The family of this 68-nucleotide RNA from Chlorobium limicola is "Chlorobi-1 RNA".
[Rfam]
RNA sequence: GAAAUUCCUCACGCCAGUGAGGAAGAACAGGUGGAAUGGGGGCCAUCUGUUCACAAAAAAAAGCGGCU
Numbered sequence: 001g002a003a004a005u006u007c008c009u010c011a012c013g014c015c016a017g018u019g020a021g022g023a024a025g026a027a028c029a030g031g032u033g034g035a036a037u038g039g040g041g042g043c044c045a046u047c048u049g050u051u052c053a054c055a056a057a058a059a060a061a062a063g064c065g066g067c068u
Stems, first nucleotide, its partner, number of pairs: 005024008025052010
Dot-bracket structure: ....((((((((....))))))))((((((((((........))))))))))................
It is one of the family's seed sequences.